[Rfam]
RNA sequence: UCGCUCGUGCCUCCCCUCAUGUGUUCGCACUAACCUUUCGCCUUUUACUAAAGAUUACACUGGGGAGGGGCACUUCAAUGAGCCUUAAGGCCAAUUUUUUAAAGGCCCUGCCUGUUUGGGCGG
Number, nucleotide and partner (000 for none) at each position: 001u000002c000003g083004c082005u081006c080007g000008u000009g071010c070011c069012u068013c067014c000015c065016c064017u063018c062019a061020u000021g000022u000023g000024u000025u000026c000027g000028c000029a000030c000031u057032a056033a055034c000035c053036u052037u051038u050039c000040g000041c000042c000043u000044u000045u000046u000047a000048c000049u000050a038051a037052a036053g035054a000055u033056u032057a031058c000059a000060c000061u019062g018063g017064g016065g015066a000067g013068g012069g011070g010071c009072a000073c000074u000075u000076c000077a000078a000079u000080g006081a005082g004083c003084c000085u000086u000087a000088a000089g000090g000091c000092c000093a000094a000095u000096u000097u000098u000099u000100u000101a000102a000103a000104g000105g121106c120107c119108c118109u000110g000111c000112c000113u000114g000115u000116u000117u000118g108119g107120g106121c105122g000123g000
RNA: U5 spliceosomal RNA
Organism: Rhipicephalus sanguineus